[Rfam]
RNA sequence: GUAUGGAUGUGAUCUUGCUUUCUUAUAUAAAUUCCGAGUUUCUAAAAAGAAAGUAGUGCUAUUCAUAUAGUUCCCUUAGCUAUUUAGCUUUACGACCCAGGAUGGGGAGAGGCAGCCCCUCAAUAUCCAGGGUAUCUCGGUAGGCUCCAAAACAUUAAGUCGUGUGAGGAGCGACAGAAUCGACUUGCAGAUA
Number, nucleotide and partner (000 for none) at each position: 001g068002u067003a066004u065005g064006g063007a062008u061009g060010u000011g000012a000013u000014c000015u000016u055017g054018c053019u052020u051021u050022c049023u048024u047025a000026u045027a000028u000029a000030a000031a000032u000033u000034c000035c140036g000037a000038g000039u000040u000041u000042c000043u000044a000045a026046a000047a024048a023049g022050a021051a020052a019053g018054u017055a016056g000057u000058g000059c000060u009061a008062u007063u006064c005065a004066u003067a002068u001069a000070g000071u000072u108073c107074c106075c105076u104077u000078a089079g088080c087081u086082a000083u000084u000085u000086a081087g080088c079089u078090u000091u000092a000093c000094g000095a133096c132097c131098c130099a000100g128101g127102a126103u125104g076105g075106g074107g073108a072109g121110a120111g119112g118113c000114a000115g000116c000117c000118c112119c111120u110121c109122a000123a000124u000125a103126u102127c101128c100129a000130g098131g097132g096133u095134a000135u000136c000137u000138c000139g000140g035141u000142a000143g000144g172145c171146u170147c169148c168149a000150a000151a000152a165153c164154a163155u162156u187157a186158a185159g184160u183161c182162g155163u154164g153165u152166g000167a000168g148169g147170a146171g145172c144173g000174a000175c000176a000177g000178a000179a000180u000181c000182g161183a160184c159185u158186u157187g156188c000189a000190g000191a000192u000193a000
RNA: Cripavirus internal ribosome entry site (IRES)